[Rfam]
RNA sequence: AAUAGUUUUAUGCCAUAUCAGUAUUCUUAUCCUGAAUUUCAGGAUUUUAUCCUGAAAAAAAUCAAAUUAAAAUACUGAAAUUCAGGAUAAGAGUACUGAUGUGGCAUAAAACUAUU
Numbered sequence: 001a002a003u004a005g006u007u008u009u010a011u012g013c014c015a016u017a018u019c020a021g022u023a024u025u026c027u028u029a030u031c032c033u034g035a036a037u038u039u040c041a042g043g044a045u046u047u048u049a050u051c052c053u054g055a056a057a058a059a060a061a062u063c064a065a066a067u068u069a070a071a072a073u074a075c076u077g078a079a080a081u082u083c084a085g086g087a088u089a090a091g092a093g094u095a096c097u098g099a100u101g102u103g104g105c106a107u108a109a110a111a112c113u114a115u116u
Base pairs, nucleotide, nucleotide: 001116002115003114004113005112006111007110008109009108010107011106012105013104014103015102016101017100018099019098020097021096022095023094024093025092026091027090029088030087031086032085033084034083035082036081037080038079039078041076042075045072046071047070048069

Background
The record is a 116-nucleotide RNA sequence from Gossypium anomalum, which matches "MIR7504 microRNA precursor family" in Rfam. The match comes from Rfam's covariance-model search (104 bits). The family's consensus secondary structure was predicted with RNAalifold.